[Rfam]
RNA: Bacterial RNase P class A
Organism: Streptomyces sp. A73
RNA sequence: CGAGCCGGCCGGGCGGUCGCGUCGGGAGUGCCCAGCGCACUUCCGCCGAGGAACGUCCGGGCUCCACAGGGCAGGAUGGUGGGUAACACCCACCCGGGGUGACCCGCGGGACAGUGCCACAGAAAGCAGACCGCCGGGCCGUCCUCGGACGGACCCGGUAAGGGUGAAACGGUGGUGUAAGAGACCACCAGCGCCCAGGGUGACCUGGGCGGCUAGGUAAACCCCAUCCGGAGCAAGGUCAAGAGGGGCCGCGGGAUCGCGGCCCUGCGCGGACGAUCGAGGGCGGCCCGCCCGAGUCCGCGGGUAGACCGCACGAGGCCGGUGGUAACACCGGUCCCAGAUGGAUGACCGCCACCCCGGCGGCCGCAAGGCCGCCAGGUGACAGAACCCGGCGUACAGGCCGACUCGUCCG
Numbered sequence: 001c002g003a004g005c006c007g008g009c010c011g012g013g014c015g016g017u018c019g020c021g022u023c024g025g026g027a028g029u030g031c032c033c034a035g036c037g038c039a040c041u042u043c044c045g046c047c048g049a050g051g052a053a054c055g056u057c058c059g060g061g062c063u064c065c066a067c068a069g070g071g072c073a074g075g076a077u078g079g080u081g082g083g084u085a086a087c088a089c090c091c092a093c094c095c096g097g098g099g100u101g102a103c104c105c106g107c108g109g110g111a112c113a114g115u116g117c118c119a120c121a122g123a124a125a126g127c128a129g130a131c132c133g134c135c136g137g138g139c140c141g142u143c144c145u146c147g148g149a150c151g152g153a154c155c156c157g158g159u160a161a162g163g164g165u166g167a168a169a170c171g172g173u174g175g176u177g178u179a180a181g182a183g184a185c186c187a188c189c190a191g192c193g194c195c196c197a198g199g200g201u202g203a204c205c206u207g208g209g210c211g212g213c214u215a216g217g218u219a220a221a222c223c224c225c226a227u228c229c230g231g232a233g234c235a236a237g238g239u240c241a242a243g244a245g246g247g248g249c250c251g252c253g254g255g256a257u258c259g260c261g262g263c264c265c266u267g268c269g270c271g272g273a274c275g276a277u278c279g280a281g282g283g284c285g286g287c288c289c290g291c292c293c294g295a296g297u298c299c300g301c302g303g304g305u306a307g308a309c310c311g312c313a314c315g316a317g318g319c320c321g322g323u324g325g326u327a328a329c330a331c332c333g334g335u336c337c338c339a340g341a342u343g344g345a346u347g348a349c350c351g352c353c354a355c356c357c358c359g360g361c362g363g364c365c366g367c368a369a370g371g372c373c374g375c376c377a378g379g380u381g382a383c384a385g386a387a388c389c390c391g392g393c394g395u396a397c398a399g400g401c402c403g404a405c406u407c408g409u410c411c412g
Base pairs, nucleotide, nucleotide: 001408002407003406004405006403007402008401009400010399011397012353013352014351015350016349017348018347020048021047023045024044025043026042027041028040029039030038053395054394055393057392058391059390060389061388062233063232064231065230069289070288071287072286074229075228076227077226078225079093080092081091082090083089094108095106096105097104098103109224110223114222115221116218117217118216131163132162133159134158135157136156137155138154140152171189172188173187174186175185176184191213192211193210194209195208196207197206198205199204237310238309239308240307269301270300271299272298273297274296281293282292283291284290317336318335319334320333321332322331323330324329